[Rfam]
RNA sequence: ACCGAUUGCAGUGACUGGCGAUAGAAAAGUGGAACUGACCACGGGGAAACUGCUAUCUUAGAAUCUGCCGUUCGCCUGGGCAAUAAUG
Numbered sequence: 001a002c003c004g005a006u007u008g009c010a011g012u013g014a015c016u017g018g019c020g021a022u023a024g025a026a027a028a029g030u031g032g033a034a035c036u037g038a039c040c041a042c043g044g045g046g047a048a049a050c051u052g053c054u055a056u057c058u059u060a061g062a063a064u065c066u067g068c069c070g071u072u073c074g075c076c077u078g079g080g081c082a083a084u085a086a087u088g
Base pairs, nucleotide, nucleotide: 004057005056006055008053009052010051011050012049015046016045017076018075019074020073021072029042030041031040032039066082067081068080069079
Rfam assigns this 88-nucleotide RNA sequence from Seinonella peptonophila to the family "ZMP/ZTP riboswitch aptamer (pfl RNA motif)". The source organism's lineage runs through Bacteria, Bacillota, Bacilli, Caryophanales and Seinonella. Its family is annotated with one-carbon metabolic process and regulation of purine nucleotide biosynthetic process in the Gene Ontology.